[Rfam]
Shown here is a 79-nucleotide sequence from Geotalea daltonii, a member of the family "Group II catalytic intron D1-D4-1". From the family's description: Group II introns are found in rRNA, tRNA and mRNA of organelles in fungi, plants and protists, and also in mRNA in bacteria. The literature on the family includes a 2001 paper in Trends Genet by Bonen and Vogel, "The ins and outs of group II introns". NCBI's taxonomy places the organism under Bacteria, Desulfuromonadia, Geobacterales, Geotalea, Geotalea daltonii. Rfam's curators put it in the seed alignment. Gene Ontology term of the family: Group II intron splicing.
RNA sequence: CGCGGUAUCUGGUAACAGCUGCCGUGAUGGGGCAGGAGUCAGCAGAAGCCAUAGUAGGCGAUAGGACGUUGCCGCAAGC
Numbered sequence: 001c002g003c004g005g006u007a008u009c010u011g012g013u014a015a016c017a018g019c020u021g022c023c024g025u026g027a028u029g030g031g032g033c034a035g036g037a038g039u040c041a042g043c044a045g046a047a048g049c050c051a052u053a054g055u056a057g058g059c060g061a062u063a064g065g066a067c068g069u070u071g072c073c074g075c076a077a078g079c
Stems, first nucleotide, its partner, number of pairs: 001026002004023004009018003039046002048079002057073006